mir-8364 microRNA precursor family: a 61-nucleotide sequence from Pristionchus pacificus.
The match comes from Rfam's covariance-model search (68 bits).
The base pairs follow the family's consensus structure, which was predicted with RNAalifold.
Rfam 15.1 lists 3,320 matches to the family in 2 species.
[Rfam]
RNA sequence: UCUUUAUUCCUUACACUCUCUCACCGGUCAGAUAGACGAGAAAGAGUGCAAAAUGAAGAGA
Numbered sequence: 001u002c003u004u005u006a007u008u009c010c011u012u013a014c015a016c017u018c019u020c021u022c023a024c025c026g027g028u029c030a031g032a033u034a035g036a037c038g039a040g041a042a043a044g045a046g047u048g049c050a051a052a053a054u055g056a057a058g059a060g061a
Stems, first nucleotide, its partner, number of pairs: 001059007012048003016044002019041004
Dot-bracket structure: (((((((....(((.((.((((...............)))).)).)))....)))))))..